[Rfam]
RNA sequence: GUAGAUGCUCAUUCACCCAUUUAUGACAGCCGAUCCCAGGAUCGCUUCAUAAGCUAUCGAAUGAUGCAGAGCCGAGUUAGGGUGUCUAUGGUCUGGCUUAUGAUGACAGUGUCAUCAAACAUCAGGCAUAACGUUGAGUGAGACACCACCAUGUUGUCCUUUGACCUGAUUUUUUUCUCACACUUGUCUUUUUAGGCAAGUGUUUUUUU
Numbered sequence: 001g002u003a004g005a006u007g008c009u010c011a012u013u014c015a016c017c018c019a020u021u022u023a024u025g026a027c028a029g030c031c032g033a034u035c036c037c038a039g040g041a042u043c044g045c046u047u048c049a050u051a052a053g054c055u056a057u058c059g060a061a062u063g064a065u066g067c068a069g070a071g072c073c074g075a076g077u078u079a080g081g082g083u084g085u086c087u088a089u090g091g092u093c094u095g096g097c098u099u100a101u102g103a104u105g106a107c108a109g110u111g112u113c114a115u116c117a118a119a120c121a122u123c124a125g126g127c128a129u130a131a132c133g134u135u136g137a138g139u140g141a142g143a144c145a146c147c148a149c150c151a152u153g154u155u156g157u158c159c160u161u162u163g164a165c166c167u168g169a170u171u172u173u174u175u176u177c178u179c180a181c182a183c184u185u186g187u188c189u190u191u192u193u194a195g196g197c198a199a200g201u202g203u204u205u206u207u208u209u
Stems, first nucleotide, its partner, number of pairs: 001072002006068003009064004027044001029042001081147007091127005102116004156165003180203010
This 209-nucleotide RNA sequence from Leminorella richardii belongs to the Rfam family "GlmZ RNA activator of glmS mRNA".
Clan: Glm clan.
It scores 132 bits against the family's covariance model.
From the family's description: This RNA was discovered in E. coli during a large scale screen. The sraJ gene was expressed in early logarithmic phase, but its level decreased with cell growth. Specific cleavage products of this RNA were found.